[Rfam]
RNA sequence: ACUCUCUCAGCUCUGCAUGGUCACGCUUGUUACUAUACGCGUGGCUUUCGUAAUGGGGAGAGAGAGAAAGGAUCUUCUCAGGACCUCAGGGUAGCCUCAUGGUGGCCACUCUUUCCUUGAGGGGUGCCACAGGU
Numbered sequence: 001a002c003u004c005u006c007u008c009a010g011c012u013c014u015g016c017a018u019g020g021u022c023a024c025g026c027u028u029g030u031u032a033c034u035a036u037a038c039g040c041g042u043g044g045c046u047u048u049c050g051u052a053a054u055g056g057g058g059a060g061a062g063a064g065a066g067a068a069a070g071g072a073u074c075u076u077c078u079c080a081g082g083a084c085c086u087c088a089g090g091g092u093a094g095c096c097u098c099a100u101g102g103u104g105g106c107c108a109c110u111c112u113u114u115c116c117u118u119g120a121g122g123g124g125u126g127c128c129a130c131a132g133g134u
Base pairs, nucleotide, nucleotide: 002066003065004064005063006062007061008060011058012057013056014055015054019046020045021044022043023042024041025040026039074124075123076122077121078120080118081117082116088112089111090110092108094106095105096104
Rfam assigns this 134-nucleotide RNA sequence from Ursus maritimus to the family "Small nucleolar RNA SNORA64/SNORA10 family". By type it is an H/ACA-box small nucleolar RNA. Clan: SNORA64 clan. From the family's description: This family belongs to the H/ACA class of small nucleolar RNAs (snoRNAs) which act as guides in the the modification of uridines to pseudouridines. This family includes the human snoRNAs U64 and ACA10 and mouse MBI-29. On this family, see Narayanan et al., EMBO J 1999: "Nucleolar localization signals of box H/ACA small nucleolar RNAs". The source organism's lineage runs through Eukaryota, Opisthokonta, Metazoa, Theria and Ursus. It scores 99 bits against the family's covariance model. Gene Ontology terms of the family: nucleolus and RNA processing.